A member of the RNA family "mir-205 microRNA precursor family" from Salmo salar, 58 nucleotides long. Taxonomically the source falls in Salmo (Eukaryota, Opisthokonta, Craniata, Euteleostomi).
[Rfam]
RNA sequence: UCCUUCAUUCCACCGGAUCCUGUUUACCAGUCUGCAGAUUCCCAGUGGGAUGAAGCUC
Numbered sequence: 001u002c003c004u005u006c007a008u009u010c011c012a013c014c015g016g017a018u019c020c021u022g023u024u025u026a027c028c029a030g031u032c033u034g035c036a037g038a039u040u041c042c043c044a045g046u047g048g049g050a051u052g053a054a055g056c057u058c
Stems, first nucleotide, its partner, number of pairs: 003055006011047003015042003020037003